[Rfam]
RNA sequence: CAGAGAAAAGGGUAAACUCAAUGAAAGGUAGGGGUGCAAAAGCCAUAGGGUCUAAGGUGCAUUUACAUUAUAACAGCAUGGCUGCCGCU
Numbered sequence: 001c002a003g004a005g006a007a008a009a010g011g012g013u014a015a016a017c018u019c020a021a022u023g024a025a026a027g028g029u030a031g032g033g034g035u036g037c038a039a040a041a042g043c044c045a046u047a048g049g050g051u052c053u054a055a056g057g058u059g060c061a062u063u064u065a066c067a068u069u070a071u072a073a074c075a076g077c078a079u080g081g082c083u084g085c086c087g088c089u
Stems, first nucleotide, its partner, number of pairs: 012037002017032002020029001022027001041083004047079001049077001050074002057068003
RNA: c-di-GMP-I riboswitch aptamer
Organism: Thermosediminibacter oceani